RNA sequence: GAUCAUCGAAGGAUGUGACCUGAAUUCAUGAUC
Dot-bracket structure: ((((((.(.(((......))).....)))))))
The record is a 33-nucleotide RNA from Flavobacterium album, which matches "S4-Flavobacteria ribosomal protein leader" in Rfam.